Source information: This 103-nucleotide RNA sequence from Ditibartonella apis belongs to the Rfam family "Glycine riboswitch aptamer". A search with the family's covariance model found it, with a score of 54 bits.

RNA sequence: CAUCUUUUUGCGGGAGAGUGUAAAAAUACAGUCAACCGUGUUUUGGCCGCCGAAGGGGAAAACAGCCCGUAAUCUCUCAGGCACAAGGAACCGUAAAAAGAUC
Numbered sequence: 001c002a003u004c005u006u007u008u009u010g011c012g013g014g015a016g017a018g019u020g021u022a023a024a025a026a027u028a029c030a031g032u033c034a035a036c037c038g039u040g041u042u043u044u045g046g047c048c049g050c051c052g053a054a055g056g057g058g059a060a061a062a063c064a065g066c067c068c069g070u071a072a073u074c075u076c077u078c079a080g081g082c083a084c085a086a087g088g089a090a091c092c093g094u095a096a097a098a099a100g101a102u103c
Base pairs, nucleotide, nucleotide: 006098007097008096009095010094011093012092013091020047021046023044024043025042026041027040028039049082050081051080052078053077056076057075058074062070063069